[Rfam]
RNA sequence: CCGUGCUAGAUGGGGAGUUAGCGGUGCCCUGUACCUGCAAUCCGCUAUAGCAGGAUCGAAUGCCUCAUAUGAGGCUUUAAAACGUAAGGUCUGGCCCGUAUAAGUGGCGUUGAGAGUUGGGCCUCACGCAAUGUAAGCCCAUGAAAUUCGUCAGGUCCGGAAGGAAGCAGCGAUAAGUGGUCACUUGCAUGUGACGUGAGAUCACCUGACUUGAGUUAACUGUACGGGUAACGCUUAUGAAUUAAAGUCGAUUUGAGGUGCACGG
Numbered sequence: 001c002c003g004u005g006c007u008a009g010a011u012g013g014g015g016a017g018u019u020a021g022c023g024g025u026g027c028c029c030u031g032u033a034c035c036u037g038c039a040a041u042c043c044g045c046u047a048u049a050g051c052a053g054g055a056u057c058g059a060a061u062g063c064c065u066c067a068u069a070u071g072a073g074g075c076u077u078u079a080a081a082a083c084g085u086a087a088g089g090u091c092u093g094g095c096c097c098g099u100a101u102a103a104g105u106g107g108c109g110u111u112g113a114g115a116g117u118u119g120g121g122c123c124u125c126a127c128g129c130a131a132u133g134u135a136a137g138c139c140c141a142u143g144a145a146a147u148u149c150g151u152c153a154g155g156u157c158c159g160g161a162a163g164g165a166a167g168c169a170g171c172g173a174u175a176a177g178u179g180g181u182c183a184c185u186u187g188c189a190u191g192u193g194a195c196g197u198g199a200g201a202u203c204a205c206c207u208g209a210c211u212u213g214a215g216u217u218a219a220c221u222g223u224a225c226g227g228g229u230a231a232c233g234c235u236u237a238u239g240a241a242u243u244a245a246a247g248u249c250g251a252u253u254u255g256a257g258g259u260g261c262a263c264g265g
Stems, first nucleotide, its partner, number of pairs: 001265006009057003012030004017025003034054005063258005069252001073249005079243002083239006092230002096227006104220002106217003114212008123200006129191002132189005137182001139180004148173004156165003
RNA: Bacterial large signal recognition particle RNA
Organism: Clostridium cadaveris